[Rfam]
Nucleotides: 184
Base pairs, nucleotide, nucleotide: 006179008177009176010175011174016079017078018077019076020075022073023072024071032064033063034062035061036060037059038058039057083112084111085110086109087108089106090105091104093102094101113139114138116136117135118134119133120132121131122130123129141169142168143167144166145165146164147163
Number, partner (000 for none) and nucleotide at each position: 001000c002000u003000u004000c005000g006179c007000c008177g009176u010175a011174g012000a013000g014000g015000c016079g017078c018077a019076a020075u021000a022073g023072u024071c025000a026000u027000c028000a029000g030000u031000a032064u033063u034062u035061a036060u037059g038058g039057u040000u041000g042000g043000a044000g045000u046000g047000a048000u049000g050000u051000c052000a053000a054000u055000g056000a057039a058038c059037c060036a061035u062034a063033a064032a065000a066000a067000a068000a069000g070000g071024g072023g073022c074000g075020a076019u077018u078017g079016c080000c081000g082000a083112a084111g085110c086109g087108a088000c089106u090105g091104u092000u093102u094101u095000u096000c097000a098000u099000c100000a101094a102093a103000u104091a105090c106089a107000u108087u109086c110085g111084c112083u113139g114138g115000g116136g117135u118134u119133g120132u121131a122130u123129u124000g125000a126000a127000u128000a129123a130122g131121u132120a133119c134118a135117a136116c137000a138114c139113u140000g141169c142168c143167a144166u145165a146164g147163u148000c149000u150000a151000u152000u153000g154000u155000g156000u157000u158000g159000u160000u161000a162000a163147a164146c165145u166144a167143u168142g169141g170000a171000g172000c173000g174011c175010u176009a177008c178000u179006g180000u181000a182000g183000g184000g